Shown here is a 426-nucleotide RNA from Pelagerythrobacter marensis, a member of the family "Bacterial RNase P class A".
RNA sequence: CCAGGGGGCCGGGCAGCCGCGGGUGUGCGAACAUCCGAGGAAAGUCCGGGCUCCACGAAACAGGGGUGGCGGGUAACGCCCGCCGGGCCGGUGCGAGCCGGUUCAGGGAAAGUGCCACAGAGAGAAAACCGCCGACGGCCCGGGAACGGGCCGGGCAAGGGUGAAAGGGUGCGGUAAGAGCGCACCGGGAUGCCGGCAACGGUAUCCGCUUGGCAAACCCCACCCGGAGCAAGGCCGAAUAGGGGCGGCGCGUCCUCGCAAGGGGGCAGGGGUGUUUCGCCCCGACCGCCCGGGUUGGCUGCUCGAGCGGCGGAGCAAUCCGUCGCCAAGAUGAAUGGCUGCCCUCGCGGGGCCGGUCUCUCCCAAGGAAACGAGGGCGGGAUACCGCCCGCGAGACAGAACCCGGCUUACAGGCCCCCUGGCAAU
Numbered sequence: 001c002c003a004g005g006g007g008g009c010c011g012g013g014c015a016g017c018c019g020c021g022g023g024u025g026u027g028c029g030a031a032c033a034u035c036c037g038a039g040g041a042a043a044g045u046c047c048g049g050g051c052u053c054c055a056c057g058a059a060a061c062a063g064g065g066g067u068g069g070c071g072g073g074u075a076a077c078g079c080c081c082g083c084c085g086g087g088c089c090g091g092u093g094c095g096a097g098c099c100g101g102u103u104c105a106g107g108g109a110a111a112g113u114g115c116c117a118c119a120g121a122g123a124g125a126a127a128a129c130c131g132c133c134g135a136c137g138g139c140c141c142g143g144g145a146a147c148g149g150g151c152c153g154g155g156c157a158a159g160g161g162u163g164a165a166a167g168g169g170u171g172c173g174g175u176a177a178g179a180g181c182g183c184a185c186c187g188g189g190a191u192g193c194c195g196g197c198a199a200c201g202g203u204a205u206c207c208g209c210u211u212g213g214c215a216a217a218c219c220c221c222a223c224c225c226g227g228a229g230c231a232a233g234g235c236c237g238a239a240u241a242g243g244g245g246c247g248g249c250g251c252g253u254c255c256u257c258g259c260a261a262g263g264g265g266g267c268a269g270g271g272g273u274g275u276u277u278c279g280c281c282c283c284g285a286c287c288g289c290c291c292g293g294g295u296u297g298g299c300u301g302c303u304c305g306a307g308c309g310g311c312g313g314a315g316c317a318a319u320c321c322g323u324c325g326c327c328a329a330g331a332u333g334a335a336u337g338g339c340u341g342c343c344c345u346c347g348c349g350g351g352g353c354c355g356g357u358c359u360c361u362c363c364c365a366a367g368g369a370a371a372c373g374a375g376g377g378c379g380g381g382a383u384a385c386c387g388c389c390c391g392c393g394a395g396a397c398a399g400a401a402c403c404c405g406g407c408u409u410a411c412a413g414g415c416c417c418c419c420u421g422g423c424a425a426u
Stems, first nucleotide, its partner, number of pairs: 001422010011411001012343007020037007042409003046406005051229004059277002063225003067222002069083005084106001085104008107220002112218002114214003129160002131156003137152006168186006187209001188207008233300004243291006269283005307326008